[Rfam]
RNA sequence: AAAAUUACAUGGCAAACUUGUCGAAAGAUAAGUACUCAAAGCAAUCAACCAAACGUAUUAACAACUUGCCAUGGUAUCCGUGCUGCUUAC
Numbered sequence: 001a002a003a004a005u006u007a008c009a010u011g012g013c014a015a016a017c018u019u020g021u022c023g024a025a026a027g028a029u030a031a032g033u034a035c036u037c038a039a040a041g042c043a044a045u046c047a048a049c050c051a052a053a054c055g056u057a058u059u060a061a062c063a064a065c066u067u068g069c070c071a072u073g074g075u076a077u078c079c080g081u082g083c084u085g086c087u088u089a090c
Base pairs, nucleotide, nucleotide: 012037017032018031019030020029021028022027040084041083042082043081045080048075049074050073055069056068057067
The family of this 90-nucleotide RNA from Pontibacillus marinus is "c-di-GMP-I riboswitch aptamer". The base pairs follow the family's consensus structure, which is taken from published work.